[Rfam]
RNA: U7 small nuclear RNA
RNA sequence: AAUUUUUCACAGAUCUUUUAGAAUUUUUUCUAACAGGAUUUCUGGUGUUGGUCAGAAUGGUCAGAAAUCCCAA
Numbered sequence: 001a002a003u004u005u006u007u008c009a010c011a012g013a014u015c016u017u018u019u020a021g022a023a024u025u026u027u028u029u030c031u032a033a034c035a036g037g038a039u040u041u042c043u044g045g046u047g048u049u050g051g052u053c054a055g056a057a058u059g060g061u062c063a064g065a066a067a068u069c070c071c072a073a
Stems, first nucleotide, its partner, number of pairs: 036070011